[Rfam]
RNA: ffh sRNA
RNA sequence: CCACGUGGAGGUCACCAUCCGCCAGCGAGUUUCGCCCGCGGAUGCGUUUCGU
Numbered sequence: 001c002c003a004c005g006u007g008g009a010g011g012u013c014a015c016c017a018u019c020c021g022c023c024a025g026c027g028a029g030u031u032u033c034g035c036c037c038g039c040g041g042a043u044g045c046g047u048u049u050c051g052u
Stems, first nucleotide, its partner, number of pairs: 016044007025035004